[Rfam]
RNA sequence: GUUGUACAUUCGAGGCCAUAGGAGAAGUGCUCACAGCACAACCUGUCAGAUUCCAAUGAAUCUGUGAAUUCUGCU
Numbered sequence: 001g002u003u004g005u006a007c008a009u010u011c012g013a014g015g016c017c018a019u020a021g022g023a024g025a026a027g028u029g030c031u032c033a034c035a036g037c038a039c040a041a042c043c044u045g046u047c048a049g050a051u052u053c054c055a056a057u058g059a060a061u062c063u064g065u066g067a068a069u070u071c072u073g074c075u
Stems, first nucleotide, its partner, number of pairs: 014043002020075002023072004027039003047064007

Description: The record is a 75-nucleotide RNA from Alligator mississippiensis, which matches "Mammalian CPEB3 ribozyme" in Rfam. The family's consensus secondary structure is taken from published work. Lineage of the source: Eukaryota > Eumetazoa > Deuterostomia > Craniata > Alligator. On this family, see Salehi-Ashtiani et al., Science 2006: "A genomewide search for ribozymes reveals an HDV-like sequence in the human CPEB3 gene". Rfam describes the family as follows. The mammalian CPEB3 ribozyme is a self cleaving RNA located in the second intron of the CPEB3 gene which belongs to a family of genes regulating messenger RNA polyadenylation.